[Rfam]
RNA sequence: GGGGCCGCGCGGGCGAGUGCGUGUGGGAGGUGGGUGCGGGGCGGGUGCGUGUGCAAGGGGCGCGUGUGUCUGUGUGUGCGUGAGGCGCGAGCCCCCUCCCCCGUCCCCUACACGUUGAUCUUAUUCGAUCGGCCGGGCCCGGCCGGGCCGGGCCGAGGUGAGAAGAAGCGGCUCCGCGAAGCCCCGCGCGCUGUGCGGGCGCGGUGCGGGCGCUGUGCGGUGGCCGGCGGCGGGCGGGAUGAGUCGAUCAGAUAGGCGAGGCCGCGGCCGCUGAGCGCCCUGCGAUUCUGACCCGC
Numbered sequence: 001g002g003g004g005c006c007g008c009g010c011g012g013g014c015g016a017g018u019g020c021g022u023g024u025g026g027g028a029g030g031u032g033g034g035u036g037c038g039g040g041g042c043g044g045g046u047g048c049g050u051g052u053g054c055a056a057g058g059g060g061c062g063c064g065u066g067u068g069u070c071u072g073u074g075u076g077u078g079c080g081u082g083a084g085g086c087g088c089g090a091g092c093c094c095c096c097u098c099c100c101c102c103g104u105c106c107c108c109u110a111c112a113c114g115u116u117g118a119u120c121u122u123a124u125u126c127g128a129u130c131g132g133c134c135g136g137g138c139c140c141g142g143c144c145g146g147g148c149c150g151g152g153c154c155g156a157g158g159u160g161a162g163a164a165g166a167a168g169c170g171g172c173u174c175c176g177c178g179a180a181g182c183c184c185c186g187c188g189c190g191c192u193g194u195g196c197g198g199g200c201g202c203g204g205u206g207c208g209g210g211c212g213c214u215g216u217g218c219g220g221u222g223g224c225c226g227g228c229g230g231c232g233g234g235c236g237g238g239a240u241g242a243g244u245c246g247a248u249c250a251g252a253u254a255g256g257c258g259a260g261g262c263c264g265c266g267g268c269c270g271c272u273g274a275g276c277g278c279c280c281u282g283c284g285a286u287u288c289u290g291a292c293c294c295g296c
Stems, first nucleotide, its partner, number of pairs: 001107005006023006039054001041052003057094003063089005069083002124164003129156004133151003137148004190205003195202002211229005217224002231295004241288006260269003
Background: The record is a 296-nucleotide RNA sequence from Nyctiprogne leucopyga, which matches "Small Cajal body-specific RNA 2" in Rfam. The source organism's lineage runs through Eukaryota, Tetrapoda, Theropoda, Caprimulgidae and Nyctiprogne. The family's consensus secondary structure is taken from published work. Rfam links the family to the GO terms nucleolus and RNA processing. On this family, see Tycowski et al., Curr Biol 2004: "Guide RNAs with 5' caps and novel box C/D snoRNA-like domains for modification of snRNAs in metazoa".